[Rfam]
RNA: Purine riboswitch aptamer
Organism: Brevinema andersonii
RNA sequence: AUUACCUAUAAUAAAGAGCCUCAUAUAUCCCUGUAAUAAGGACAGGAGUUUCUACGUUUCACUGUAAAUGAAACGCUAUGAUGUUAUUUCAUAUAUUC
Numbered sequence: 001a002u003u004a005c006c007u008a009u010a011a012u013a014a015a016g017a018g019c020c021u022c023a024u025a026u027a028u029c030c031c032u033g034u035a036a037u038a039a040g041g042a043c044a045g046g047a048g049u050u051u052c053u054a055c056g057u058u059u060c061a062c063u064g065u066a067a068a069u070g071a072a073a074c075g076c077u078a079u080g081a082u083g084u085u086a087u088u089u090c091a092u093a094u095a096u097u098c
Stems, first nucleotide, its partner, number of pairs: 018084002021081005030046005056074006